[Rfam]
Nucleotides: 092
Stems, first nucleotide, its partner, number of pairs: 001018004023047004031039002049092010066077003
Number, partner (000 for none) and nucleotide at each position: 001018g002017u003016c004015c005000c006000c007000g008000a009000u010000g011000c012000g013000g014000c015004g016003g017002a018001c019000c020000a021000a022000a023047g024046c025045c026044a027000u028000a029000g030000a031039c032038c033000u034000g035000a036000c037000a038032g039031g040000g041000c042000a043000a044026u045025g046024g047023c048000g049092a050091u051090a052089g053088c054087c055086g056085g057084c058083c059000c060000g061000a062000u063000c064000c065000g066077g067076g068075u069000u070000a071000c072000g073000a074000g075068a076067c077066c078000g079000a080000u081000c082000a083058g084057g085056c086055c087054g088053g089052c090051u091050g092049u